Record summary: Rfam assigns this 397-nucleotide sequence from Kamptonema sp. PCC 6506 to the family "Bacterial RNase P class A". The family's consensus secondary structure is taken from published work. Lineage of the source: Bacteria > Cyanobacteriota > Cyanophyceae > Oscillatoriophycideae > Kamptonema. A search with the family's covariance model found it, with a score of 253 bits. Rfam classes the family as a ribozyme.

RNA sequence: AGAGUAGGCGCAGGCGGUUGCGGACUCCAAAGAGUCUGAGGAAAGUCCGGGCUCCCGAAAGCCCAAACUUGCUGGAUAACGCCCAGUGCGAGCGAUCGCGAGGAUAGUGCCACAGAAAUAUACCGCCUACAUUAGGAGCCUAAAGUGUUAAAUUUUAGACUCAAAACUGUAGGUAAGGGUGCAAAGGUGCGGUAAGAGCGCACCAGCAGCGUCGAGAGGCGCUGGCUAGGUAAACCCCAGUUGGGAGCAAGGUCGGAGGAACUACGGUUGGUCUUUUACCAGUUCCGCUUGAAUGCACCGCUAGAGGCAUCUGGUAACAGGUGUCCCAGAUAGAUAACUGCCCUCUUAGCUGCUUGCAGUUAAGGGAACAGAACCCGGCUUAUGUCCGACUCUUUCC
Numbered sequence: 001a002g003a004g005u006a007g008g009c010g011c012a013g014g015c016g017g018u019u020g021c022g023g024a025c026u027c028c029a030a031a032g033a034g035u036c037u038g039a040g041g042a043a044a045g046u047c048c049g050g051g052c053u054c055c056c057g058a059a060a061g062c063c064c065a066a067a068c069u070u071g072c073u074g075g076a077u078a079a080c081g082c083c084c085a086g087u088g089c090g091a092g093c094g095a096u097c098g099c100g101a102g103g104a105u106a107g108u109g110c111c112a113c114a115g116a117a118a119u120a121u122a123c124c125g126c127c128u129a130c131a132u133u134a135g136g137a138g139c140c141u142a143a144a145g146u147g148u149u150a151a152a153u154u155u156u157a158g159a160c161u162c163a164a165a166a167c168u169g170u171a172g173g174u175a176a177g178g179g180u181g182c183a184a185a186g187g188u189g190c191g192g193u194a195a196g197a198g199c200g201c202a203c204c205a206g207c208a209g210c211g212u213c214g215a216g217a218g219g220c221g222c223u224g225g226c227u228a229g230g231u232a233a234a235c236c237c238c239a240g241u242u243g244g245g246a247g248c249a250a251g252g253u254c255g256g257a258g259g260a261a262c263u264a265c266g267g268u269u270g271g272u273c274u275u276u277u278a279c280c281a282g283u284u285c286c287g288c289u290u291g292a293a294u295g296c297a298c299c300g301c302u303a304g305a306g307g308c309a310u311c312u313g314g315u316a317a318c319a320g321g322u323g324u325c326c327c328a329g330a331u332a333g334a335u336a337a338c339u340g341c342c343c344u345c346u347u348a349g350c351u352g353c354u355u356g357c358a359g360u361u362a363a364g365g366g367a368a369c370a371g372a373a374c375c376c377g378g379c380u381u382a383u384g385u386c387c388g389a390c391u392c393u394u395u396c397c
Base pairs, nucleotide, nucleotide: 001393002392003391004390005389007387008386010385011384012383013342014341015340016339017338018337019336021038022037023036024035025034026033027032043381044380045379047378048377049376050375051374052247053246054245055244061277066242067241068240070239071238072086073085074084075083087101088099089098090097091096102237103236107235108234109231110230111229123178124177125174126173127172128171129170130169131168133166186204187203188202189201190200191199206226207224208223209222210221211220212219213218251299252298253297254295255289256288258286259285260284268282269281270280271279272278306325307324308323309322310321311320312319313318